This 78-nucleotide RNA from Microcaecilia unicolor belongs to the Rfam family "Mammalian CPEB3 ribozyme". Rfam describes the family as follows. The mammalian CPEB3 ribozyme is a self cleaving RNA located in the second intron of the CPEB3 gene which belongs to a family of genes regulating messenger RNA polyadenylation. The match comes from Rfam's covariance-model search (41 bits). The organism belongs to Microcaecilia, within Eukaryota.
RNA sequence: CCAGUUUUUUUAGGGGUCAUAGCAAAAGUAUCCAUAUCACAACCUUUGUCAAAUUGAUAUUACUUUAUGAAUUCUGCU
Numbered sequence: 001c002c003a004g005u006u007u008u009u010u011u012a013g014g015g016g017u018c019a020u021a022g023c024a025a026a027a028g029u030a031u032c033c034a035u036a037u038c039a040c041a042a043c044c045u046u047u048g049u050c051a052a053a054u055u056g057a058u059a060u061u062a063c064u065u066u067a068u069g070a071a072u073u074c075u076g077c078u
Stems, first nucleotide, its partner, number of pairs: 013046005021078004026073002028040002051066003055062002